[Rfam]
RNA sequence: UUAUGAUGGUGAGGGAAAUUUCUAAGCAUACCCUUAAAUCUCCCAAGAUUAGUAGAGAUUUUCUCCUUCUUUUUGUCUGAAGCUCAAGAUCUCACUCCUCAAGUG
Numbered sequence: 001u002u003a004u005g006a007u008g009g010u011g012a013g014g015g016a017a018a019u020u021u022c023u024a025a026g027c028a029u030a031c032c033c034u035u036a037a038a039u040c041u042c043c044c045a046a047g048a049u050u051a052g053u054a055g056a057g058a059u060u061u062u063c064u065c066c067u068u069c070u071u072u073u074u075g076u077c078u079g080a081a082g083c084u085c086a087a088g089a090u091c092u093c094a095c096u097c098c099u100c101a102a103g104u105g
Stems, first nucleotide, its partner, number of pairs: 001105001004102001005100002055072002
Rfam assigns this 105-nucleotide sequence from Capsicum baccatum to the family "Plant small nucleolar RNA R71".
Lineage of the source: Eukaryota > Streptophytina > Tracheophyta > Solanoideae > Capsicum.
On this family, see Brown et al., Trends Plant Sci 2003: "Plant snoRNAs: functional evolution and new modes of gene expression".
Its family is annotated with nucleolus and RNA processing in the Gene Ontology.
The family's consensus secondary structure was predicted with PFOLD.